[Rfam]
RNA sequence: AAACUUACCUGGCGCCGGGUUCAGGGUGAUCAGGAAUGCUCUGACCCCGGGUGGAGGCUCACCAUUGCACUUCGGUGGGUUGAAACUCGCGACGAACCCUAAUUGGGUGCGCUCGGGCGUGUAGUUUUUGUCAGUGGGGAGGUCUUCGGAUCAUCCCUU
Numbered sequence: 001a002a003a004c005u006u007a008c009c010u011g012g013c014g015c016c017g018g019g020u021u022c023a024g025g026g027u028g029a030u031c032a033g034g035a036a037u038g039c040u041c042u043g044a045c046c047c048c049g050g051g052u053g054g055a056g057g058c059u060c061a062c063c064a065u066u067g068c069a070c071u072u073c074g075g076u077g078g079g080u081u082g083a084a085a086c087u088c089g090c091g092a093c094g095a096a097c098c099c100u101a102a103u104u105g106g107g108u109g110c111g112c113u114c115g116g117g118c119g120u121g122u123a124g125u126u127u128u129u130g131u132c133a134g135u136g137g138g139g140a141g142g143u144c145u146u147c148g149g150a151u152c153a154u155c156c157c158u159u
Base pairs, nucleotide, nucleotide: 012120013119014118015117017047018046019045020044021043023042024041025040026039027038049088050087051086052085056081057080058079060077061076062075063074090115091114092113093111095108097106098105136158137157138156139155140154141152142151143150144149
RNA: U1 spliceosomal RNA